Rfam assigns this 126-nucleotide RNA sequence from Equus asinus to the family "Small nucleolar RNA SNORA25".
ACA25 is a member of the H/ACA class of snoRNA that guide the sites of modification of uridines to pseudouridines.
The family's consensus secondary structure was predicted with RNAfold.
NCBI's taxonomy places the organism under Eukaryota, Gnathostomata, Teleostomi, Equidae, Equus.
The family's RNA type in Rfam is H/ACA-box small nucleolar RNA.
The match comes from Rfam's covariance-model search (119 bits).

Nucleotides: 126
Stems, first nucleotide, its partner, number of pairs: 002059006014047008023039001027036001072119005080111003086104003090101002093098001
Number, partner (000 for none) and nucleotide at each position: 001000a002059g003058g004057u005056c006055a007054u008000u009000u010000c011000a012000a013000a014047g015046a016045g017044g018043g019042c020041u021040u022000a023039u024000g025000g026000a027036g028000c029000u030000g031000u032000g033000a034000a035000a036027c037000c038000a039023g040021g041020a042019g043018c044017u045016c046015u047014u048000a049000a050000c051000g052000c053000u054007a055006u056005g057004a058003c059002c060000a061000a062000a063000g064000a065000u066000u067000g068000a069000g070000g071000u072119u073118c074117u075116c076115c077000a078000u079000a080111g081110g082109a083000u084000g085000c086104c087103a088102g089000u090101c091100a092000g093098u094000c095000a096000g097000u098093a099000g100091u101090g102088c103087u104086g105000u106000g107000u108000u109082u110081c111080c112000c113000g114000a115076g116075g117074a118073g119072a120000u121000a122000c123000a124000a125000a126000a